[Rfam]
RNA sequence: GUCUGCUUUGCUUUAGCAGCACGUAAAUAUUGGAGUUAAGUUACUAUACAUUUCUCCAGUAUUGACAGUGCUGCUGAAGUAAGACUGAC
Numbered sequence: 001g002u003c004u005g006c007u008u009u010g011c012u013u014u015a016g017c018a019g020c021a022c023g024u025a026a027a028u029a030u031u032g033g034a035g036u037u038a039a040g041u042u043a044c045u046a047u048a049c050a051u052u053u054c055u056c057c058a059g060u061a062u063u064g065a066c067a068g069u070g071c072u073g074c075u076g077a078a079g080u081a082a083g084a085c086u087g088a089c
Stems, first nucleotide, its partner, number of pairs: 001089003005085001013077010024065001026063010
Rfam assigns this 89-nucleotide sequence from Polypterus senegalus to the family "mir-15 microRNA precursor family". A reference for the family is Lagos-Quintana et al. (2001), "Identification of novel genes coding for small expressed RNAs", Science. Rfam's curators write: This family represents the related mir-15a and mir-15b sequences. In humans miR-15a and miR-16 are clustered within 0.5 kb at 13q14. This region has been shown to be deleted in more than half of B cell chronic lymphocytic leukaemias (CLL). Both miR-15a and miR-16 are deleted or down-regulated in more than two thirds of CLL cases. Clan: mir-15 clan.